The record is a 167-nucleotide RNA sequence from Eubacterium sp. CAG:156, which matches "Clostridiales-1 RNA" in Rfam. The source organism's lineage runs through Bacteria, Clostridia, Eubacteriales, Eubacteriaceae and Eubacterium. Pairs were carried over by alignment from the consensus structure, which is taken from published work. Rfam classes the family as a small RNA. The match comes from Rfam's covariance-model search (144 bits).
RNA sequence: UGAUGCCAGGGUCAAAAGGUCUUUCACACACAUGAGCUUGCUCAUAAGUGGGCGAAAGACCUUGGGACCCGCCCCAAUAUGAGCAUAAAAGCGGGAUGAUUCCCGCGAUAUGCGAAUAUUGGGUAGGAUUGUGAUAGUGCGCAGCACGGAACAAUCCGUAGGCAUCA
Numbered sequence: 001u002g003a004u005g006c007c008a009g010g011g012u013c014a015a016a017a018g019g020u021c022u023u024u025c026a027c028a029c030a031c032a033u034g035a036g037c038u039u040g041c042u043c044a045u046a047a048g049u050g051g052g053c054g055a056a057a058g059a060c061c062u063u064g065g066g067a068c069c070c071g072c073c074c075c076a077a078u079a080u081g082a083g084c085a086u087a088a089a090a091g092c093g094g095g096a097u098g099a100u101u102c103c104c105g106c107g108a109u110a111u112g113c114g115a116a117u118a119u120u121g122g123g124u125a126g127g128a129u130u131g132u133g134a135u136a137g138u139g140c141g142c143a144g145c146a147c148g149g150a151a152c153a154a155u156c157c158g159u160a161g162g163c164a165u166c167a
Stems, first nucleotide, its partner, number of pairs: 001167007010069004016063010027052001029050003032045005073123008083113004091106006126157007137147004